[Rfam]
Nucleotides: 081
Base pairs, nucleotide, nucleotide: 002080003079004078005077006076007075008074009073010072011071012070013069014068015067016066017065018064019063020062021061022060023059024058
Number, partner (000 for none) and nucleotide at each position: 001000a002080c003079c004078a005077c006076u007075g008074a009073g010072c011071c012070a013069u014068c015067u016066c017065u018064c019063c020062a021061g022060u023059c024058c025000c026000u027000a028000a029000u030000a031000u032000a033000g034000g035000u036000u037000u038000c039000c040000u041000a042000a043000a044000u045000u046000a047000u048000u049000c050000a051000a052000a053000a054000a055000u056000u057000g058024g059023g060022g061021c062020u063019g064018g065017a066016g067015a068014g069013a070012u071011g072010g073009c074008u075007c076006a077005g078004u079003g080002g081000u